[Rfam]
RNA sequence: UGGACAGAUUACUGUAUUCGACUGUAUUCACAGCGUGAAACAGGGGAUUACACUAUUUUAAAACGGAAAGUGUAUCAAUUAACAUAAUAGACUACU
Numbered sequence: 001u002g003g004a005c006a007g008a009u010u011a012c013u014g015u016a017u018u019c020g021a022c023u024g025u026a027u028u029c030a031c032a033g034c035g036u037g038a039a040a041c042a043g044g045g046g047a048u049u050a051c052a053c054u055a056u057u058u059u060a061a062a063a064c065g066g067a068a069a070g071u072g073u074a075u076c077a078a079u080u081a082a083c084a085u086a087a088u089a090g091a092c093u094a095c096u
Base pairs, nucleotide, nucleotide: 002095004093009090010089011088013086014085015084017082018081020080021079023077024076026075027074029072030071031070034065035064036063037059038058039057040056042054043053
Rfam assigns this 96-nucleotide sequence from Nicotiana sylvestris to the family "MIR6152 microRNA precursor family".
NCBI's taxonomy places the organism under Eukaryota, Streptophytina, Gunneridae, Solanales, Nicotiana.
It scores 91 bits against the family's covariance model.